SL2 RNA: a 110-nucleotide sequence from Ancylostoma duodenale. Gene Ontology term of the family: mRNA trans splicing, via spliceosome. Lineage of the source: Eukaryota > Metazoa > Eumetazoa > Strongyloidea > Ancylostoma. The base pairs follow the family's consensus structure, which is taken from published work. By type it is a non-coding RNA gene. From the family's description: This family represents SL2 RNA. SL2 RNA is involved in trans splicing in lower eukaryotes. Trans-splicing is a form of RNA processing. The acquisition of a spliced leader from a SL RNA is a intra-molecular reaction which precisely joins exons derived from separately transcribed RNAs. Approximately 25% of C. elegans genes are organised into polycistronic transcription units and the presence of SL2 on an mRNA is an indication the the gene is in an operon.
RNA sequence: GGAUAGAUCCCAGUAUCACAAGGUACUACAGGGUCCUGACAUGUGCUAAGCACAGGGUCAGAUUCCUCAAAUUUUUGGAAAGCUCUUCCGGGGAUAUCCGGUGGAGCAAC
Numbered sequence: 001g002g003a004u005a006g007a008u009c010c011c012a013g014u015a016u017c018a019c020a021a022g023g024u025a026c027u028a029c030a031g032g033g034u035c036c037u038g039a040c041a042u043g044u045g046c047u048a049a050g051c052a053c054a055g056g057g058u059c060a061g062a063u064u065c066c067u068c069a070a071a072u073u074u075u076u077g078g079a080a081a082g083c084u085c086u087u088c089c090g091g092g093g094a095u096a097u098c099c100g101g102u103g104g105a106g107c108a109a110c
Base pairs, nucleotide, nucleotide: 006035007034009031013029014028017023037060038059039058040057042054043053044052045051084108086106087105088104089103090102092099093098